Rfam assigns this 89-nucleotide RNA from Streptomyces clavuligerus to the family "sodF sRNA".
Taxonomically the source falls in Streptomyces (Bacteria, Bacillati, Actinomycetota, Kitasatosporales).
The match comes from Rfam's covariance-model search (81 bits).
The family's RNA type in Rfam is small RNA.
RNA sequence: UCGUCCGACUCGUGAUCGUCUUCUCACCUUUCACGUGCGGACGGAUGAAAGAAGGACCCCCGCGAGGACAUGACUCGCGGGGGUCCUUC
Numbered sequence: 001u002c003g004u005c006c007g008a009c010u011c012g013u014g015a016u017c018g019u020c021u022u023c024u025c026a027c028c029u030u031u032c033a034c035g036u037g038c039g040g041a042c043g044g045a046u047g048a049a050a051g052a053a054g055g056a057c058c059c060c061c062g063c064g065a066g067g068a069c070a071u072g073a074c075u076c077g078c079g080g081g082g083g084u085c086c087u088u089c
Stems, first nucleotide, its partner, number of pairs: 001044007009037001012034004018028001051089016